[Rfam]
RNA sequence: ACAGCAGAUCACGACUGGCGCGGGUGGGUCACCACCGGGAAGUGACAGCGAGCGCAUCGCCCGCCUGGGUGCGCUCA
Numbered sequence: 001a002c003a004g005c006a007g008a009u010c011a012c013g014a015c016u017g018g019c020g021c022g023g024g025u026g027g028g029u030c031a032c033c034a035c036c037g038g039g040a041a042g043u044g045a046c047a048g049c050g051a052g053c054g055c056a057u058c059g060c061c062c063g064c065c066u067g068g069g070u071g072c073g074c075u076c077a
Stems, first nucleotide, its partner, number of pairs: 004049002009045004015039002017065004024035004054072005
RNA: ZMP/ZTP riboswitch aptamer (pfl RNA motif)